[Rfam]
RNA sequence: AAACUAGAUGAACUCCGAGCUGUUUUGCCUAAGUCCUUGGGAUAGGGGAAAGCCGCCGUCAGCCGAUGUUCGAGCUGUAAGGGUCAGGAAAGAAAUGCCCUGGCCUCCCGUAUUUGGAAAGGUGUUUAUGUUGCCACUGC
Numbered sequence: 001a002a003a004c005u006a007g008a009u010g011a012a013c014u015c016c017g018a019g020c021u022g023u024u025u026u027g028c029c030u031a032a033g034u035c036c037u038u039g040g041g042a043u044a045g046g047g048g049a050a051a052g053c054c055g056c057c058g059u060c061a062g063c064c065g066a067u068g069u070u071c072g073a074g075c076u077g078u079a080a081g082g083g084u085c086a087g088g089a090a091a092g093a094a095a096u097g098c099c100c101u102g103g104c105c106u107c108c109c110g111u112a113u114u115u116g117g118a119a120a121g122g123u124g125u126u127u128a129u130g131u132u133g134c135c136a137c138u139g140c
Base pairs, nucleotide, nucleotide: 004133006131011126012125013124015122016121019056020055022053023052024051025050026049028047029046033043034042035041036040060077061076062075063074081106082105083104084103085102086101087100088099091096107117108116
RNA: Molybdenum/Tungsten riboswitch aptamer (Moco RNA motif)